[Rfam]
RNA sequence: AUUACGUCGACUGGAGAGCGGUCAGCCAGAACUGACCCACCGAAGGGGCAACACGCCGAAAGCGUGCAAACUCUCAGGUAACCCGGACAGAGGGAGAGGC
Numbered sequence: 001a002u003u004a005c006g007u008c009g010a011c012u013g014g015a016g017a018g019c020g021g022u023c024a025g026c027c028a029g030a031a032c033u034g035a036c037c038c039a040c041c042g043a044a045g046g047g048g049c050a051a052c053a054c055g056c057c058g059a060a061a062g063c064g065u066g067c068a069a070a071c072u073c074u075c076a077g078g079u080a081a082c083c084c085g086g087a088c089a090g091a092g093g094g095a096g097a098g099g100c
Stems, first nucleotide, its partner, number of pairs: 007094002011090003020037004039079003042075002046073003052066005
This 100-nucleotide RNA from Marinobacterium iners belongs to the Rfam family "Glycine riboswitch aptamer". Rfam's curators write: This family represents the bacterial glycine riboswitch. Glycine riboswitches usually consist of two metabolite-binding aptamers domains with similar structures in tandem. The aptamers cooperatively bind glycine to regulate the expression of downstream genes. In Bacillus subtilis, this riboswitch is found upstream of the gcvT operon which controls glycine degradation.